This 109-nucleotide sequence from Xenopus laevis belongs to the Rfam family "Small nucleolar RNA SNORD46". A reference for the family is Nicoloso et al. (1996), "Intron-encoded, antisense small nucleolar RNAs: the characterization of nine novel species points to their direct role as guides for the 2'-O-ribose methylation of rRNAs", J Mol Biol. Rfam's curators write: U40 is a C/D box small nucleolar RNA, also known as snoZ153 in plants. The human sequence has also been annotated in the sequence databases as U46. U40 is encoded in intron 2 of the ribosomal protein S8 gene in human, and is hypothesised to guide methylation of 2'-O-ribose residues on 28S ribosomal RNA. This family represents vertebrate U40. It is annotated as a C/D-box small nucleolar RNA.
RNA sequence: GGCAAUCUGUGAUGAAACACUGUCCUUAGGCUUGCAGCUCAGGCCGUUUUGGCCAUGUUUUUGCUGCCAGCCAGUGAUAGGCCUGUCAUAGUUACACUGAUGAAUUGCC
Numbered sequence: 001g002g003c004a005a006u007c008u009g010u011g012a013u014g015a016a017a018c019a020c021u022g023u024c025c026u027u028a029g030g031c032u033u034g035c036a037g038c039u040c041a042g043g044c045c046g047u048u049u050u051g052g053c054c055a056u057g058u059u060u061u062u063g064c065u066g067c068c069a070g071c072c073a074g075u076g077a078u079a080g081g082c083c084u085g086u087c088a089u090a091g092u093u094a095c096a097c098u099g100a101u102g103a104a105u106u107g108c109c
Stems, first nucleotide, its partner, number of pairs: 001109006